[Rfam]
Nucleotides: 110
Base pairs, nucleotide, nucleotide: 020099021098022097023096026093031088033086034085035084036083038081039080040079
Number, partner (000 for none) and nucleotide at each position: 001000u002000u003000u004000u005000u006000a007000u008000u009000g010000g011000a012000u013000a014000u015000u016000a017000a018000u019000c020099g021098u022097c023096a024000c025000a026093u027000g028000u029000a030000g031088c032000g033086c034085u035084u036083u037000u038081a039080u040079u041000a042000g043000a044000c045000g046000u047000u048000a049000a050000u051000u052000u053000u054000g055000u056000g057000u058000a059000c060000c061000u062000a063000c064000u065000u066000a067000a068000c069000a070000u071000c072000a073000a074000u075000g076000u077000c078000c079040a080039a081038u082000a083036a084035a085034a086033g087000u088031g089000g090000a091000a092000c093026a094000c095000g096023u097022g098021a099020c100000a101000g102000u103000c104000a105000a106000c107000a108000u109000c110000u
This 110-nucleotide RNA from Glycine soja belongs to the Rfam family "MIR1520 microRNA precursor family". The source organism's lineage runs through Eukaryota, Mesangiospermae, Fabaceae, Papilionoideae and Glycine subgen. Soja. Pairs were carried over by alignment from the consensus structure, which was predicted with RNAalifold. It scores 63 bits against the family's covariance model. Its Rfam clan is "MIR1520 microRNA precursor clan".